[Rfam]
Rfam assigns this 90-nucleotide RNA sequence from a Candidatus Poribacteria bacterium to the family "Selenocysteine transfer RNA". The family's consensus secondary structure is taken from published work. Clan: tRNA clan.

RNA sequence: GGGGGAGGAUAGGGUCUGGUGUCUCUACCGGUCUUCAAAACCGGCUUGUCCAUGCAAGUGGAUAGGUGGGUUCGAUUCCCACCCUCUCCC
Numbered sequence: 001g002g003g004g005g006a007g008g009a010u011a012g013g014g015u016c017u018g019g020u021g022u023c024u025c026u027a028c029c030g031g032u033c034u035u036c037a038a039a040a041c042c043g044g045c046u047u048g049u050c051c052a053u054g055c056a057a058g059u060g061g062a063u064a065g066g067u068g069g070g071u072u073c074g075a076u077u078c079c080c081a082c083c084c085u086c087u088c089c090c
Stems, first nucleotide, its partner, number of pairs: 001090008011026004016021001028044005047064005067081004